[Rfam]
RNA sequence: CGGUAGGUGUACUCCCACGACGCGGCCGCGUCGGUGAGCGGCUGGUCGCCGAGGUGGUCGCCCCCGGCCAGCGCCCCCAGGACCGUUUCGUCACCGUAUUUGCCGGUGCCGAUGCGGUCGACGCGGCCGUGCGCGAUCAGCACCAGGCGGUCGGCCGGUGCGCCCGCGGCGGCGAUCACGUCGCCGGGCGCGUACUCGUGCUGGACGAACCGCCCGCCGAGCGCGCCGAGCACCUCGGUGUCGGUGAAGUCGCGCAGCGCGGGCAGUUCGCGCAGCUCGUCGGGGAUGACCGAGACCUCGGUGCCGGAGACGGCGAAGUCGACGCGGCCGUCGCCGACCGUGUAGGUCAGGCGCCGGUUGACGCGGUACGUGCCGCCCGAGACCUGCACCCAGGGCAGCAGCCGCAGCAGCCAGCGCGAGGUGAUGCCCUGCAUCUGGGGGACGGUCUUGGUGGUCGUGGCCAGGUUGCGUGCCGCGGUCGUGGUCAGGCUGGAAUUCGGGGUUUCGCCCCCG
Numbered sequence: 001c002g003g004u005a006g007g008u009g010u011a012c013u014c015c016c017a018c019g020a021c022g023c024g025g026c027c028g029c030g031u032c033g034g035u036g037a038g039c040g041g042c043u044g045g046u047c048g049c050c051g052a053g054g055u056g057g058u059c060g061c062c063c064c065c066g067g068c069c070a071g072c073g074c075c076c077c078c079a080g081g082a083c084c085g086u087u088u089c090g091u092c093a094c095c096g097u098a099u100u101u102g103c104c105g106g107u108g109c110c111g112a113u114g115c116g117g118u119c120g121a122c123g124c125g126g127c128c129g130u131g132c133g134c135g136a137u138c139a140g141c142a143c144c145a146g147g148c149g150g151u152c153g154g155c156c157g158g159u160g161c162g163c164c165c166g167c168g169g170c171g172g173c174g175a176u177c178a179c180g181u182c183g184c185c186g187g188g189c190g191c192g193u194a195c196u197c198g199u200g201c202u203g204g205a206c207g208a209a210c211c212g213c214c215c216g217c218c219g220a221g222c223g224c225g226c227c228g229a230g231c232a233c234c235u236c237g238g239u240g241u242c243g244g245u246g247a248a249g250u251c252g253c254g255c256a257g258c259g260c261g262g263g264c265a266g267u268u269c270g271c272g273c274a275g276c277u278c279g280u281c282g283g284g285g286a287u288g289a290c291c292g293a294g295a296c297c298u299c300g301g302u303g304c305c306g307g308a309g310a311c312g313g314c315g316a317a318g319u320c321g322a323c324g325c326g327g328c329c330g331u332c333g334c335c336g337a338c339c340g341u342g343u344a345g346g347u348c349a350g351g352c353g354c355c356g357g358u359u360g361a362c363g364c365g366g367u368a369c370g371u372g373c374c375g376c377c378c379g380a381g382a383c384c385u386g387c388a389c390c391c392a393g394g395g396c397a398g399c400a401g402c403c404g405c406a407g408c409a410g411c412c413a414g415c416g417c418g419a420g421g422u423g424a425u426g427c428c429c430u431g432c433a434u435c436u437g438g439g440g441g442a443c444g445g446u447c448u449u450g451g452u453g454g455u456c457g458u459g460g461c462c463a464g465g466u467u468g469c470g471u472g473c474c475g476c477g478g479u480c481g482u483g484g485u486c487a488g489g490c491u492g493g494a495a496u497u498c499g500g501g502g503u504u505u506c507g508c509c510c511c512c513g
Stems, first nucleotide, its partner, number of pairs: 006390006015381001019328001022325002027321002029318001031316002039313001041311001042306001045305001047303006054233002058229003062225001064223001065111004077102001079100002082097002085094002117222002119219002122216002126213002129210002135206001137204004142199002146196002148192002153189001155187005162177001165174003235295002240290004245285001250282001252280003256277003259271003329342003353377001355375003361371003391431007399423002403418003407415001437476001439474002442471003447465006477512002480507002484503003488498001
Saccharopolyspora sRNA 350: a 513-nucleotide RNA sequence. By type it is an antisense RNA. A search with the family's covariance model found it, with a score of 154 bits. Rfam 15.1 lists 1,170 matches to the family in 705 species. Pairs were carried over by alignment from the consensus structure, which was predicted with RNAfold.